Source information
The family of this 126-nucleotide sequence from Novilysobacter concretionis is "SAM riboswitch aptamer (S box leader)".

[Rfam]
RNA sequence: CAUCCAUCGAGACCGGCAGAGGGACAGGCCCUUUGAAGCCGGGGCAACCCAGCGCAGCGCAAGCGGCGCGAAGGUGCCAAUUCCUGCGGUGACCCGGUCGUCUGGCCGGUCACCGGAAGAUGGUUG
Numbered sequence: 001c002a003u004c005c006a007u008c009g010a011g012a013c014c015g016g017c018a019g020a021g022g023g024a025c026a027g028g029c030c031c032u033u034u035g036a037a038g039c040c041g042g043g044g045c046a047a048c049c050c051a052g053c054g055c056a057g058c059g060c061a062a063g064c065g066g067c068g069c070g071a072a073g074g075u076g077c078c079a080a081u082u083c084c085u086g087c088g089g090u091g092a093c094c095c096g097g098u099c100g101u102c103u104g105g106c107c108g109g110u111c112a113c114c115g116g117a118a119g120a121u122g123g124u125u126g
Stems, first nucleotide, its partner, number of pairs: 001126002004123005013042005021031003025086004043078004048074002052069003082118001087115008